[Rfam]
RNA sequence: CGGCGUUCUAUGAUGAAAUAUUCUCGGAUGUAAACAAACAGUAUUUUCUACCGAAUUGCGCAAACAAACCAUGUGGAUAUUUUCCGUUGCCUUCCUUCUGAUCGAAUGCC
Numbered sequence: 001c002g003g004c005g006u007u008c009u010a011u012g013a014u015g016a017a018a019u020a021u022u023c024u025c026g027g028a029u030g031u032a033a034a035c036a037a038a039c040a041g042u043a044u045u046u047u048c049u050a051c052c053g054a055a056u057u058g059c060g061c062a063a064a065c066a067a068a069c070c071a072u073g074u075g076g077a078u079a080u081u082u083u084c085c086g087u088u089g090c091c092u093u094c095c096u097u098c099u100g101a102u103c104g105a106a107u108g109c110c
Base pairs, nucleotide, nucleotide: 003109004108005107025086026085027084028083